Record summary:
Small nucleolar RNA snoR8a: a 93-nucleotide RNA sequence from Theobroma cacao. It scores 48 bits against the family's covariance model. Its family is annotated with RNA processing and nucleolus in the Gene Ontology.

[Rfam]
RNA sequence: AAGUUAGCGAUGAUUAUAAAAAUAAUUCCUCAUUCUAACUUGCUUAAUUUGGACAUGAUAAACCUCUUAUUAUAAUCAUAGAAUUUGAGCUAU
Numbered sequence: 001a002a003g004u005u006a007g008c009g010a011u012g013a014u015u016a017u018a019a020a021a022a023u024a025a026u027u028c029c030u031c032a033u034u035c036u037a038a039c040u041u042g043c044u045u046a047a048u049u050u051g052g053a054c055a056u057g058a059u060a061a062a063c064c065u066c067u068u069a070u071u072a073u074a075a076u077c078a079u080a081g082a083a084u085u086u087g088a089g090c091u092a093u
Base pairs, nucleotide, nucleotide: 003093004092006091007090
NCBI's taxonomy places the organism under Eukaryota, Embryophyta, Tracheophyta, Gunneridae, Theobroma. Rfam classes the family as a C/D-box small nucleolar RNA.